[Rfam]
RNA: Bacterial RNase P class A
RNA sequence: GGAGUCGGCCCGACAGUCGCUUCGGUGUUAACUGCACAGUUCUCUUGAGUGCUGUCUGGUGCAUCGGGGAGGAAAGUCCGGGCUCCACAGGGUAGAGCGCCAGGUAACGCCUGGGGGGUGUGAACCCACGGAAAGUGCAACAGAAAGUAAACCGCCUAAGUAUCCUUCGGGAUGCCGGUAAGGGUGAAAGGGUGCGGUAAGAGCGCACCGCGCAGCUGGUAACAGUCUGCGGCACGGUAAACCCCGCUCGGAGCAAGACCAAAUAGGAACCCGAUGGUGCGACCCGUACCGGGUUCGGGUAGGUUGCUUGAGGUAUGUGGUGACACAUAUCCCAGAUGAAUGACUGUCCACGACAGAACCCGGCUUACAGGCUGACUCCGAAU
Dot-bracket structure: ((((((((((.(((((((.(((((((((................................)))))))))....[[[.[[[[[((((...[[[[.((((((((((.....)))))(((((....)))).)((...((((.............(((((...((((((....)))))).)))..)).......((((((.......))))))(((((((((....))).))))).)...))..)))))))))))))...((((......((((((...(((((.]]]]))))))))))).....))))......((((((((....))))))))..........)))))))..........]]]]]]]]...))))))))))....